[Rfam]
RNA sequence: AAUCGCAUAUUGAAGCAUCACAAUACUACGACGACUGGCUACUUGGAACUCAUACUUCCUCGUAGACCUCGACCCAAACACAAUUGAAAUGCUUUAGGGAAAGUCCCCGGACCCGAAUUGACAGAAAGUGUCGCCAAUAAUCUCAUUACUGGUCAAGUCCAAAUCCACAAAAGAUUGAUCUGUUAUGUUUUGGGUUAAGAUUCUCUCGCAAGAGGGAUGAAUGCUCCUCAACGGUCUCGUUUUUGUGGUUUGGCGUUCGUCAUGGUUACAGUCAUGCGAUUGCGGUUGUCCUCUUUCUGUAAAAGGAGGGGGAUGAUUGUAACUCAACGGGGCUCACUC
Numbered sequence: 001a002a003u004c005g006c007a008u009a010u011u012g013a014a015g016c017a018u019c020a021c022a023a024u025a026c027u028a029c030g031a032c033g034a035c036u037g038g039c040u041a042c043u044u045g046g047a048a049c050u051c052a053u054a055c056u057u058c059c060u061c062g063u064a065g066a067c068c069u070c071g072a073c074c075c076a077a078a079c080a081c082a083a084u085u086g087a088a089a090u091g092c093u094u095u096a097g098g099g100a101a102a103g104u105c106c107c108c109g110g111a112c113c114c115g116a117a118u119u120g121a122c123a124g125a126a127a128g129u130g131u132c133g134c135c136a137a138u139a140a141u142c143u144c145a146u147u148a149c150u151g152g153u154c155a156a157g158u159c160c161a162a163a164u165c166c167a168c169a170a171a172a173g174a175u176u177g178a179u180c181u182g183u184u185a186u187g188u189u190u191u192g193g194g195u196u197a198a199g200a201u202u203c204u205c206u207c208g209c210a211a212g213a214g215g216g217a218u219g220a221a222u223g224c225u226c227c228u229c230a231a232c233g234g235u236c237u238c239g240u241u242u243u244u245g246u247g248g249u250u251u252g253g254c255g256u257u258c259g260u261c262a263u264g265g266u267u268a269c270a271g272u273c274a275u276g277c278g279a280u281u282g283c284g285g286u287u288g289u290c291c292u293c294u295u296u297c298u299g300u301a302a303a304a305g306g307a308g309g310g311g312g313a314u315g316a317u318u319g320u321a322a323c324u325c326a327a328c329g330g331g332g333c334u335c336a337c338u339c
Stems, first nucleotide, its partner, number of pairs: 001281006010097009102334002105332004120132004133153004138148004157254003167246006176239003180234004216226002283319015
The record is a 339-nucleotide RNA from Linnemannia schmuckeri, which matches "RNase MRP" in Rfam. RNase MRP is an enzymatically active ribonucleoprotein with two distinct roles in eukaryotes. The match comes from Rfam's covariance-model search (75 bits).